[Rfam]
RNA sequence: UAUUUUGUUCGUAGGAACAAAAAUAAAUAUAUCUAUUCUACACCCGAUAAGUACCAAUACUCAAUGGUA
Numbered sequence: 001u002a003u004u005u006u007g008u009u010c011g012u013a014g015g016a017a018c019a020a021a022a023a024u025a026a027a028u029a030u031a032u033c034u035a036u037u038c039u040a041c042a043c044c045c046g047a048u049a050a051g052u053a054c055c056a057a058u059a060c061u062c063a064a065u066g067g068u069a
Stems, first nucleotide, its partner, number of pairs: 003022002006019005044067002051060003
Shown here is a 69-nucleotide RNA from Malus domestica, a member of the family "Plastid-clpP 5UTR RNA". Pairs were carried over by alignment from the consensus structure, which was predicted with LocARNA. Lineage of the source: Eukaryota > Streptophyta > Embryophyta > eudicotyledons > Malus. The family has 343 seed sequences and 2,105 matches in Rfam 15.1. About the family: Plastid clpP is a non-coding RNA (ncRNA) recognised in plastids. It was found in the prime untranslated region (5UTR) of a protease complex subunit (clpP) in plastids, suggesting a posible cis-regulatory function.